[Rfam]
RNA sequence: CAGGCUGUGAUGAUUGGCGCAGGGGUACGGACCUCAGCUGAUGAUGGGAGCUGAGUGUACGUGUUUCUCCUCUGUCCUGCGUGUGGCAGGAGGGGGGCGAGCACCUACACGAGACCGGUGCCUGAAUCUGAGCCUG
Numbered sequence: 001c002a003g004g005c006u007g008u009g010a011u012g013a014u015u016g017g018c019g020c021a022g023g024g025g026u027a028c029g030g031a032c033c034u035c036a037g038c039u040g041a042u043g044a045u046g047g048g049a050g051c052u053g054a055g056u057g058u059a060c061g062u063g064u065u066u067c068u069c070c071u072c073u074g075u076c077c078u079g080c081g082u083g084u085g086g087c088a089g090g091a092g093g094g095g096g097g098c099g100a101g102c103a104c105c106u107a108c109a110c111g112a113g114a115c116c117g118g119u120g121c122c123u124g125a126a127u128c129u130g131a132g133c134c135u136g
Base pairs, nucleotide, nucleotide: 001136002135003134004133005132